Rfam assigns this 83-nucleotide RNA sequence from Longibaculum muris to the family "tRNA". Rfam links the family to the GO term triplet codon-amino acid adaptor activity.
RNA sequence: GCGGACGUGGUGGAAUGGUAGACACGCCAUCUUGAGGGGGUGGUAGACGUAUGUCUGUGUGAGUUCAAAUCUCAUCGUCCGCA
Numbered sequence: 001g002c003g004g005a006c007g008u009g010g011u012g013g014a015a016u017g018g019u020a021g022a023c024a025c026g027c028c029a030u031c032u033u034g035a036g037g038g039g040g041u042g043g044u045a046g047a048c049g050u051a052u053g054u055c056u057g058u059g060u061g062a063g064u065u066c067a068a069a070u071c072u073c074a075u076c077g078u079c080c081g082c083a
Base pairs, nucleotide, nucleotide: 001082002081003080004079005078006077007076010025011024012023027043028042029041030040031039059075060074061073062072063071
The base pairs follow the family's consensus structure, which is taken from published work. Rfam classes the family as a transfer RNA. On this family, see Hou, Trends Biochem Sci 1993: "The tertiary structure of tRNA and the development of the genetic code".